[Rfam]
RNA sequence: GUCCUUGCGUCUACAGCCUGGGCGUUUCGCGUAAGGCUGAUGGCUGGUGGCAGUUGCCACCGGCCU
Numbered sequence: 001g002u003c004c005u006u007g008c009g010u011c012u013a014c015a016g017c018c019u020g021g022g023c024g025u026u027u028c029g030c031g032u033a034a035g036g037c038u039g040a041u042g043g044c045u046g047g048u049g050g051c052a053g054u055u056g057c058c059a060c061c062g063g064c065c066u
Base pairs, nucleotide, nucleotide: 014039015038016037017036018035022030023029042065043064044063045062046061047060048059049058050057051056
RNA: Pseudomonas sRNA P26